[Rfam]
RNA sequence: UUGAAUUAAUUACAUAGCACUCAUAUAAUCGCAGGGAUAUGGCUUGCAAGUUUCUACCGAAUAACCGUAAAUUGUUCGACUAUGAGUGAAGUUUCUUGUUGC
Numbered sequence: 001u002u003g004a005a006u007u008a009a010u011u012a013c014a015u016a017g018c019a020c021u022c023a024u025a026u027a028a029u030c031g032c033a034g035g036g037a038u039a040u041g042g043c044u045u046g047c048a049a050g051u052u053u054c055u056a057c058c059g060a061a062u063a064a065c066c067g068u069a070a071a072u073u074g075u076u077c078g079a080c081u082a083u084g085a086g087u088g089a090a091g092u093u094u095c096u097u098g099u100u101g102c
Stems, first nucleotide, its partner, number of pairs: 018088008029049001031047005058078007
RNA: Purine riboswitch aptamer
Organism: Bacillus sp. AFS040349